A member of the RNA family "Caenorhabditis snoRNA ceN101" from Caenorhabditis remanei, 127 nucleotides long. Pairs were carried over by alignment from the consensus structure, which was predicted with RNAalifold. For this family Rfam cites "Systematic identification of non-coding RNA 2,2,7-trimethylguanosine cap structures in Caenorhabditis elegans" (Jia et al., BMC Mol Biol, 2007). Taxonomically the source falls in Caenorhabditis (Eukaryota, Opisthokonta, Eumetazoa, Nematoda). Rfam 15.1 lists 19 matches to the family in 9 species. The match comes from Rfam's covariance-model search (132 bits). The family's RNA type in Rfam is H/ACA-box small nucleolar RNA.
RNA sequence: UUCCUCACUUAUAAGCCGGGGGACUAGUCUUUGCUAAGUUCACUAGUAAAACGUGAGGAAAAUCAUAGAGACAACCAGACACCGGGGAUGUUUUGAUGUUUUCGGUCACUAUGUGUGUCCCACAUUA
Numbered sequence: 001u002u003c004c005u006c007a008c009u010u011a012u013a014a015g016c017c018g019g020g021g022g023a024c025u026a027g028u029c030u031u032u033g034c035u036a037a038g039u040u041c042a043c044u045a046g047u048a049a050a051a052c053g054u055g056a057g058g059a060a061a062a063u064c065a066u067a068g069a070g071a072c073a074a075c076c077a078g079a080c081a082c083c084g085g086g087g088a089u090g091u092u093u094u095g096a097u098g099u100u101u102u103c104g105g106u107c108a109c110u111a112u113g114u115g116u117g118u119c120c121c122a123c124a125u126u127a
Base pairs, nucleotide, nucleotide: 002059003058004057005056006055007054008053015047016046019043021041022040023039024038025036026035027034028033068121070119071118072117073116076113077112079110081106082105083104084103085102086101087100088099089098090097091096